[Rfam]
RNA: ffh sRNA
RNA sequence: AUAUGCCGGGAUCGCCCCCCACCAGCGAGUUUCGCCCGUGGGGGCAAAAUCG
Numbered sequence: 001a002u003a004u005g006c007c008g009g010g011a012u013c014g015c016c017c018c019c020c021a022c023c024a025g026c027g028a029g030u031u032u033c034g035c036c037c038g039u040g041g042g043g044g045c046a047a048a049a050u051c052g
Base pairs, nucleotide, nucleotide: 016044017043018042019041020040021039022038025035026034027033028032